Small nucleolar RNA SNORD17: a 199-nucleotide RNA sequence from Cavia porcellus. The family has 19 seed sequences and 1,015 matches in Rfam 15.1. By type it is a C/D-box small nucleolar RNA. Gene Ontology terms of the family: RNA processing and nucleolus. Rfam describes the family as follows. The snoRNA HBI-43 belongs to the C/D family of snoRNAs, guiding 2'O-ribose methylation at position U3797 of the 28S rRNA. Pseudouridylation in position U3797 is predicted to be guided by the H/ACA snoRNA ACA48. The sequence is in the family's curated seed alignment. The source organism's lineage runs through Eukaryota, Chordata, Euteleostomi, Euarchontoglires and Cavia.
RNA sequence: GUGAAGUGAUGAUUCAGUUUAUCCAUUCGCUGAGUGCACCCCACUACCUUCUUCAAGCCCCGUUCCUGUUCUAGGGACUCAGGGCUCUGCGGCCCCCAGUGCCUUGCGGCCUGCAGCGUUCUGCUGCAGGUGCGUGGUGCAGGGGGCUGUGGGAGGGUGGACGGAGGCAGCACGAAGAUGAGUGGUGGAAUCUGAUCAC
Numbered sequence: 001g002u003g004a005a006g007u008g009a010u011g012a013u014u015c016a017g018u019u020u021a022u023c024c025a026u027u028c029g030c031u032g033a034g035u036g037c038a039c040c041c042c043a044c045u046a047c048c049u050u051c052u053u054c055a056a057g058c059c060c061c062g063u064u065c066c067u068g069u070u071c072u073a074g075g076g077a078c079u080c081a082g083g084g085c086u087c088u089g090c091g092g093c094c095c096c097c098a099g100u101g102c103c104u105u106g107c108g109g110c111c112u113g114c115a116g117c118g119u120u121c122u123g124c125u126g127c128a129g130g131u132g133c134g135u136g137g138u139g140c141a142g143g144g145g146g147c148u149g150u151g152g153g154a155g156g157g158u159g160g161a162c163g164g165a166g167g168c169a170g171c172a173c174g175a176a177g178a179u180g181a182g183u184g185g186u187g188g189a190a191u192c193u194g195a196u197c198a199c
Base pairs, nucleotide, nucleotide: 010198011197012196013195014194017191018190019189020188023185024184025183026182027181028180029179030177031176034173035172039167040166041163044160045159046158047157048156051155052154053152054151056086057085058084059083060082062078063077064076065075066074067073089150090149091148092147093146094145095144101138102137103136106133107132109131110130111129112128113127114126115125116124117123118122